[Rfam]
RNA sequence: GGUAUGAUGGCGUUUGCCAGCGGCGUAGCUCACUUUACGCCGCGGCGUACGUUCUAUAACGUGCAAAAAUACUUUUCAGAAUGCC
Dot-bracket structure: ...............(((.((((((((........)))))))))))((((((......)))))).....................

The family of this 85-nucleotide RNA sequence from Klebsiella aerogenes is "Peptidase-S11 RNA". The sequence is in the family's curated seed alignment. It is annotated as a cis-regulatory element. Taxonomically the source falls in Klebsiella aerogenes (Bacteria, Pseudomonadati, Pseudomonadota, Enterobacteriaceae).